sok antitoxin (CssrC): a 159-nucleotide RNA sequence from Erwinia sp. Leaf53. Its family is annotated with mRNA binding in the Gene Ontology. By type it is an antitoxin RNA. The base pairs follow the family's consensus structure, which is taken from published work. Also identified in Shigella as CssrC. Lineage of the source: Bacteria > Pseudomonadota > Enterobacterales > Erwiniaceae > Erwinia.
RNA sequence: GGGUGCUCAGGAUCUUAUGUCCUGAGCCAUUCUGGUAAGGGACGUAAAGAGAAAAAGCCCCACAUGAUGUUCAUCACGUGAGGCUGCUCCUUACAUCUCGACAAUGUGAGGGUAGCCUUUUGCCAGCUGUAAAGCAAUGGAGAAAGGAGGCCAAAGAUG
Number, nucleotide and partner (000 for none) at each position: 001g061002g060003g059004u000005g058006c057007u056008c000009a000010g000011g000012a000013u050014c049015u047016u046017a045018u044019g043020u042021c041022c040023u039024g000025a000026g036027c000028c034029a000030u000031u000032c000033u000034g028035g000036u026037a000038a000039g023040g022041g021042a020043c019044g018045u017046a016047a015048a000049g014050a013051g000052a000053a000054a000055a000056a007057g006058c005059c003060c002061c001062a079063c078064a000065u000066g075067a074068u073069g000070u000071u000072c000073a068074u067075c066076a000077c000078g063079u062080g119081a118082g117083g116084c115085u000086g000087c000088u112089c111090c110091u109092u108093a107094c106095a105096u000097c000098u000099c000100g000101a000102c000103a000104a000105u095106g094107u093108g092109a091110g090111g089112g088113u000114a000115g084116c083117c082118u081119u080120u000121u000122g000123c150124c149125a000126g000127c146128u145129g000130u000131a000132a000133a000134g000135c000136a000137a000138u000139g000140g000141a000142g000143a000144a000145a128146g127147g000148a000149g124150g123151c000152c000153a000154a000155a000156g000157a000158u000159g000